[Rfam]
RNA sequence: AAAGGUUGAAAGUGUGAGGCCAUAGGAGAAAUUUCAAUGGCAUUGCCAUGUCAGAUUCCAACAAAUCUGUGAAUUCUGCU
Numbered sequence: 001a002a003a004g005g006u007u008g009a010a011a012g013u014g015u016g017a018g019g020c021c022a023u024a025g026g027a028g029a030a031a032u033u034u035c036a037a038u039g040g041c042a043u044u045g046c047c048a049u050g051u052c053a054g055a056u057u058c059c060a061a062c063a064a065a066u067c068u069g070u071g072a073a074u075u076c077u078g079c080u
Base pairs, nucleotide, nucleotide: 013048018047019046020045024080025079027077028076029075030074031043032042052069053068054067055066056065057064
The record is an 80-nucleotide RNA from Crocodylus porosus, which matches "Mammalian CPEB3 ribozyme" in Rfam. The match comes from Rfam's covariance-model search (36 bits). The family's consensus secondary structure is taken from published work.